[Rfam]
RNA sequence: GAGGGUUGGCCCCUCGGUGUCGGCGUAUAGGCGCAGGCACCAAACCACCCACUGCUGCUGCGUUAAAGAGACGUGGUGGUGAGCGAGAUGGGAAAAGGUCGGGCAUGACCCGAUCAGGU
Numbered sequence: 001g002a003g004g005g006u007u008g009g010c011c012c013c014u015c016g017g018u019g020u021c022g023g024c025g026u027a028u029a030g031g032c033g034c035a036g037g038c039a040c041c042a043a044a045c046c047a048c049c050c051a052c053u054g055c056u057g058c059u060g061c062g063u064u065a066a067a068g069a070g071a072c073g074u075g076g077u078g079g080u081g082a083g084c085g086a087g088a089u090g091g092g093a094a095a096a097g098g099u100c101g102g103g104c105a106u107g108a109c110c111c112g113a114u115c116a117g118g119u
Stems, first nucleotide, its partner, number of pairs: 001015005016041006023034004046118001048092004053086001054080002057077003061073004097115006
RNA: Group II catalytic intron D1-D4-2
Organism: Oleiphilus messinensis